Rfam assigns this 77-nucleotide RNA sequence from Myotis myotis to the family "mir-9193 microRNA precursor family". Its family is annotated with miRNA-mediated post-transcriptional gene silencing and RISC complex in the Gene Ontology. Lineage of the source: Eukaryota > Gnathostomata > Amniota > Theria > Myotis.
RNA sequence: CUUGGGGGGGGGGGGGCGUCCCUCAGUCUGGAUUGCGAGAGGGCACAGGCCAGGCCAAGGGACCUCGCCGGUGCAUG
Numbered sequence: 001c002u003u004g005g006g007g008g009g010g011g012g013g014g015g016g017c018g019u020c021c022c023u024c025a026g027u028c029u030g031g032a033u034u035g036c037g038a039g040a041g042g043g044c045a046c047a048g049g050c051c052a053g054g055c056c057a058a059g060g061g062a063c064c065u066c067g068c069c070g071g072u073g074c075a076u077g
Stems, first nucleotide, its partner, number of pairs: 003075002006072001009069002012066003018063006026055003030051002033048003037044001